This 74-nucleotide RNA sequence from Pan troglodytes belongs to the Rfam family "mir-4477 microRNA precursor family". Pairs were carried over by alignment from the consensus structure, which was predicted with RNAalifold. The source organism's lineage runs through Eukaryota, Vertebrata, Dipnotetrapodomorpha, Tetrapoda and Pan.
RNA sequence: ACCUCCUCCCAUCAAUCACAAUUGUCCUUAAUGGCAUUUGCUAUUAAGGACAUUUGUGAUUCAUGGGAAUAGGU
Numbered sequence: 001a002c003c004u005c006c007u008c009c010c011a012u013c014a015a016u017c018a019c020a021a022u023u024g025u026c027c028u029u030a031a032u033g034g035c036a037u038u039u040g041c042u043a044u045u046a047a048g049g050a051c052a053u054u055u056g057u058g059a060u061u062c063a064u065g066g067g068a069a070u071a072g073g074u
Stems, first nucleotide, its partner, number of pairs: 002073003007068004014061008023052010034041002